This 84-nucleotide RNA from Allobacillus sp. SKP2-8 belongs to the Rfam family "Glycine riboswitch aptamer".
This family represents the bacterial glycine riboswitch.
RNA sequence: CUCUGGAGAGAGUCUAAAUUUAUAGACCACCAAAGAUGUAAGCAGUGAUUGAUUUCUGUGAAACUUUCAGGUGACAGGACAGAG
Numbered sequence: 001c002u003c004u005g006g007a008g009a010g011a012g013u014c015u016a017a018a019u020u021u022a023u024a025g026a027c028c029a030c031c032a033a034a035g036a037u038g039u040a041a042g043c044a045g046u047g048a049u050u051g052a053u054u055u056c057u058g059u060g061a062a063a064c065u066u067u068c069a070g071g072u073g074a075c076a077g078g079a080c081a082g083a084g
Stems, first nucleotide, its partner, number of pairs: 001084005012027004029072003033067001036066001038064001042059004
Dot-bracket structure: (((((......((((........)))).(((.(..(.(...((((..........))))....).))..))).......)))))